[Rfam]
Shown here is a 95-nucleotide RNA sequence from Sulfuritalea hydrogenivorans, a member of the family "c-di-GMP-I riboswitch aptamer". Gene Ontology term of the family: cyclic-di-GMP binding. It scores 73 bits against the family's covariance model.

RNA sequence: UCUGAAACAGGGCAAACCCGUCGAAAGGCGGGGACGCAAAAUCACCGGCCUAACGGGCGCUCCCAGCGGCGCUCCACGGUAGCGGGAUUGCCAGG
Numbered sequence: 001u002c003u004g005a006a007a008c009a010g011g012g013c014a015a016a017c018c019c020g021u022c023g024a025a026a027g028g029c030g031g032g033g034a035c036g037c038a039a040a041a042u043c044a045c046c047g048g049c050c051u052a053a054c055g056g057g058c059g060c061u062c063c064c065a066g067c068g069g070c071g072c073u074c075c076a077c078g079g080u081a082g083c084g085g086g087a088u089u090g091c092c093a094g095g
Base pairs, nucleotide, nucleotide: 012037013036017032018031019030020029021028022027040089041088042087043086045085046084047083048080049079050078055074056073057072058071059070060069061068